[Rfam]
RNA: Bacillus sRNA ncr1015
RNA sequence: UUGUAAGAUGACAUAUUUAUACCCUUAUACCCGAUUGUAUCGCAUUCAGAUUGUAUCAUCGUGUCUAUGUAAUUGCAAUAAUAAAGAACCUGAAAUCAGAGGAUUCAGGUUCUUUUUUGG
Numbered sequence: 001u002u003g004u005a006a007g008a009u010g011a012c013a014u015a016u017u018u019a020u021a022c023c024c025u026u027a028u029a030c031c032c033g034a035u036u037g038u039a040u041c042g043c044a045u046u047c048a049g050a051u052u053g054u055a056u057c058a059u060c061g062u063g064u065c066u067a068u069g070u071a072a073u074u075g076c077a078a079u080a081a082u083a084a085a086g087a088a089c090c091u092g093a094a095a096u097c098a099g100a101g102g103a104u105u106c107a108g109g110u111u112c113u114u115u116u117u118u119g120g
Base pairs, nucleotide, nucleotide: 036069037068038067039064040063041061042060083115084114085113086112087111088110089109090108091107092106093105